Background:
Rfam assigns this 133-nucleotide RNA sequence from Sus scrofa to the family "Small nucleolar RNA SNORA31". The source organism's lineage runs through Eukaryota, Eumetazoa, Tetrapoda, Amniota and Sus. The match comes from Rfam's covariance-model search (42 bits). From the family's description: ACA31 (SNORA31) belongs to the H/ACA class of snoRNAs which are thought to guide the sites of modification of uridines to pseudouridines. ACA31 is predicted to guide the pseudouridylation of U3713 in 28S rRNA and U218 in 18S rRNA. This family includes the mouse homologue snoMBI-161. The literature on the family includes a 2001 paper in EMBO J by Huttenhofer et al., "RNomics: an experimental approach that identifies 201 candidates for novel, small, non-messenger RNAs in mouse".
RNA sequence: UUGCAGCUUUUAAUAUACCUUUGGAAAAAAUCUGUUGUCUGUUACUCAGGUUUCCACUACAGAUGCAAGAAAAAAAUGUCCUCUCGUUUUCUGUCUGAUUAUGGCAUCCCAGACUAAAUUGGGGAAUACAGGG
Dot-bracket structure: .((((.((..(...(.(((..(((.................)))....))).)..)....)).))))...........(((((...(..((((..((.(...).))...))))..)....)))))........